[Rfam]
RNA sequence: GCACGUUGAGCUUCCAAUCGAAGCUGCAGUCAGACCCAUGCCAAGCAACGGGGGCGUGGG
Numbered sequence: 001g002c003a004c005g006u007u008g009a010g011c012u013u014c015c016a017a018u019c020g021a022a023g024c025u026g027c028a029g030u031c032a033g034a035c036c037c038a039u040g041c042c043a044a045g046c047a048a049c050g051g052g053g054g055c056g057u058g059g060g
Stems, first nucleotide, its partner, number of pairs: 004050005010024005035060006041053002
A member of the RNA family "Glutamine-II riboswitch aptamer", 60 nucleotides long. Pairs were carried over by alignment from the consensus structure, which is taken from published work. The literature on the family includes a 2019 paper in Nucleic Acids Res by Huang et al., "Structure and ligand binding of the glutamine-II riboswitch". Rfam's curators put it in the seed alignment.